The record is a 115-nucleotide sequence from Tripterygium wilfordii, which matches "Small nucleolar RNA Z278" in Rfam. By type it is a C/D-box small nucleolar RNA. The source organism's lineage runs through Eukaryota, Spermatophyta, Gunneridae, Pentapetalae and Tripterygium. A reference for the family is Chen et al. (2003), "The high diversity of snoRNAs in plants: identification and comparative study of 120 snoRNA genes from Oryza sativa", Nucleic Acids Res. Gene Ontology terms of the family: RNA processing and nucleolus.

[Rfam]
RNA sequence: GUCAGUGAGGAUUUAUCCAUGUUUUGAGAUGUAGUUUGCCUUGAGACCCUGUUUUCAGGGAGAACCUACUUGGGGUUACUGCAUUGAUAUUGAAAUUAUUGGAUCUCUCUGAGAC
Numbered sequence: 001g002u003c004a005g006u007g008a009g010g011a012u013u014u015a016u017c018c019a020u021g022u023u024u025u026g027a028g029a030u031g032u033a034g035u036u037u038g039c040c041u042u043g044a045g046a047c048c049c050u051g052u053u054u055u056c057a058g059g060g061a062g063a064a065c066c067u068a069c070u071u072g073g074g075g076u077u078a079c080u081g082c083a084u085u086g087a088u089a090u091u092g093a094a095a096u097u098a099u100u101g102g103a104u105c106u107c108u109c110u111g112a113g114a115c
Base pairs, nucleotide, nucleotide: 001115002114003113047060048059049058050057051056